[Rfam]
RNA sequence: AUAGCUGAAUUGUUGGCUAUACGGUUUAAGUGGACCCCGGUAAUCUUCUCCUCGUCGCCAAACUAGAUGAAGAUUAUCGGGUUUUUUGCUU
Numbered sequence: 001a002u003a004g005c006u007g008a009a010u011u012g013u014u015g016g017c018u019a020u021a022c023g024g025u026u027u028a029a030g031u032g033g034a035c036c037c038c039g040g041u042a043a044u045c046u047u048c049u050c051c052u053c054g055u056c057g058c059c060a061a062a063c064u065a066g067a068u069g070a071a072g073a074u075u076a077u078c079g080g081g082u083u084u085u086u087u088g089c090u091u
Base pairs, nucleotide, nucleotide: 001020002019003018004017005016028091029090030089031088032085033084034083036081037080038079039078040077041076042075043074044073045072046071047070
This 91-nucleotide sequence from Escherichia coli belongs to the Rfam family "CopA-like RNA". Its family is annotated with mRNA binding in the Gene Ontology. On this family, see Gerhart et al., Nucleic Acids Res 1986: "Structural analysis of an RNA molecule involved in replication control of plasmid R1". The family's RNA type in Rfam is antisense RNA. Rfam describes the family as follows. In several groups of bacterial plasmids, antisense RNAs regulate copy number through inhibition of replication initiator protein synthesis. These RNAs are characterised by a long hairpin structure interrupted by several unpaired residues or bulged loops. In plasmid R1, the inhibitory complex between the antisense RNA (CopA) and its target mRNA (CopT) is characterised by a four-way junction structure and a side-by-side helical alignment. The source organism's lineage runs through Bacteria, Pseudomonadota, Gammaproteobacteria, Enterobacteriaceae and Escherichia.